nhaA-I RNA: a 59-nucleotide RNA sequence from Sorangium cellulosum. The base pairs follow the family's consensus structure, which is taken from published work. Acidobacteria, Alphaproteobacteria, Betaproteobacteria and Gammaproteobacteria, Verrucomicrobia, cand. division NC10. It is one of the family's seed sequences. By type it is a riboswitch.
RNA sequence: GGGUGUCGCGGCGGCGGAGCGCCGCGACAGGUCUUCAUGGGACGGUCGGGCCGCCUUCC
Dot-bracket structure: ....((((((((........))))))))...........(((.(((......))).)))